RNA sequence: UAUAUUUGCAGCCGAUUACCAAAGAGGUAAUCCGCAUAAUAAUCAUUUACAAAAAUAUUAGCAUG
Numbered sequence: 001u002a003u004a005u006u007u008g009c010a011g012c013c014g015a016u017u018a019c020c021a022a023a024g025a026g027g028u029a030a031u032c033c034g035c036a037u038a039a040u041a042a043u044c045a046u047u048u049a050c051a052a053a054a055a056u057a058u059u060a061g062c063a064u065g
Stems, first nucleotide, its partner, number of pairs: 014032006
RNA: S15-Flavobacteria ribosomal protein leader
Organism: Wenyingzhuangia fucanilytica